[Rfam]
The family of this 85-nucleotide RNA sequence from Actinidia chinensis is "Small nucleolar RNA R16". The family has 18 seed sequences and 884 matches in Rfam 15.1.
RNA sequence: AUUGGCAGAUGAUGAAUGUUAUCUUAUCCUACACACUGAUUUAAUCGUGUUGAUUAAUUAACUCCGCUUAUUGUCUGAUGCCAAA
Numbered sequence: 001a002u003u004g005g006c007a008g009a010u011g012a013u014g015a016a017u018g019u020u021a022u023c024u025u026a027u028c029c030u031a032c033a034c035a036c037u038g039a040u041u042u043a044a045u046c047g048u049g050u051u052g053a054u055u056a057a058u059u060a061a062c063u064c065c066g067c068u069u070a071u072u073g074u075c076u077g078a079u080g081c082c083a084a085a
Stems, first nucleotide, its partner, number of pairs: 003083005
A search with the family's covariance model found it, with a score of 76 bits.
Rfam links the family to the GO terms nucleolus and RNA processing.